A member of the RNA family "Bacterial RNase P class A" from Syntrophobacter fumaroxidans, 378 nucleotides long. Rfam describes the family as follows. Ribonuclease P (RNase P) is a ubiquitous endoribonuclease, found in archaea, bacteria and eukarya as well as chloroplasts and mitochondria. Pairs were carried over by alignment from the consensus structure, which is taken from published work. Rfam's curators put it in the seed alignment. Its Rfam clan is "RNaseP clan".
RNA sequence: UGGAGUAGCACAAAUGAUCGCCGGUUCCGUACGGGAUCGGAGGAAAGUCCGGGCUCCACAGGGCAGGGUGCUGGGUAACGCCCAGUCCCGGUGACGGGGAGGAUAGCGCCACAGAAAGCAAACCGCCCUGCAUUGCGCAGGGUAAGGGUGAAACGGUGAGGUAAGAGCUCACCAGUCCCGAUGGUGACAUCGGGAGCUAGGCAAGCCCCACCCGGAGCAAGACCGAAUAGGAGAGCGUUUGAGGGCUGCCCGUCCGAGGCUCUCGGGUAGGUUGCUUGAUCCCGCCGGCAACGGCGGGACUAGAGGAAUGAUCAUUGCCUUUCGUCGCCUGCGGGCGUUCGAGGGGAACAGAACCCGGCUUAUGGGCUGCUCCAAAUU
Numbered sequence: 001u002g003g004a005g006u007a008g009c010a011c012a013a014a015u016g017a018u019c020g021c022c023g024g025u026u027c028c029g030u031a032c033g034g035g036a037u038c039g040g041a042g043g044a045a046a047g048u049c050c051g052g053g054c055u056c057c058a059c060a061g062g063g064c065a066g067g068g069u070g071c072u073g074g075g076u077a078a079c080g081c082c083c084a085g086u087c088c089c090g091g092u093g094a095c096g097g098g099g100a101g102g103a104u105a106g107c108g109c110c111a112c113a114g115a116a117a118g119c120a121a122a123c124c125g126c127c128c129u130g131c132a133u134u135g136c137g138c139a140g141g142g143u144a145a146g147g148g149u150g151a152a153a154c155g156g157u158g159a160g161g162u163a164a165g166a167g168c169u170c171a172c173c174a175g176u177c178c179c180g181a182u183g184g185u186g187a188c189a190u191c192g193g194g195a196g197c198u199a200g201g202c203a204a205g206c207c208c209c210a211c212c213c214g215g216a217g218c219a220a221g222a223c224c225g226a227a228u229a230g231g232a233g234a235g236c237g238u239u240u241g242a243g244g245g246c247u248g249c250c251c252g253u254c255c256g257a258g259g260c261u262c263u264c265g266g267g268u269a270g271g272u273u274g275c276u277u278g279a280u281c282c283c284g285c286c287g288g289c290a291a292c293g294g295c296g297g298g299a300c301u302a303g304a305g306g307a308a309u310g311a312u313c314a315u316u317g318c319c320u321u322u323c324g325u326c327g328c329c330u331g332c333g334g335g336c337g338u339u340c341g342a343g344g345g346g347a348a349c350a351g352a353a354c355c356c357g358g359c360u361u362a363u364g365g366g367c368u369g370c371u372c373c374a375a376a377u378u
Base pairs, nucleotide, nucleotide: 001374002373003372004371005370006369007368008367009366011365012363013316014315015314016313017312018311019310021040022039023038024037025036026035027034028033045361046360047359049358050357051356052355053354054217055216056215057214061251062250063249064248066213067212068211069210070209071085072084073083074082075081086100087098088097089096090095101208102207106206107205108202109201110200123147124146125143126142127141128140129139130138131137155173156172157171158170159169160168175197176195177194178193179192180191181190182189183188221273222272223271224270231264232263233262234261235260236259243255244254245253246252280299281298282297283296284295285294286293287292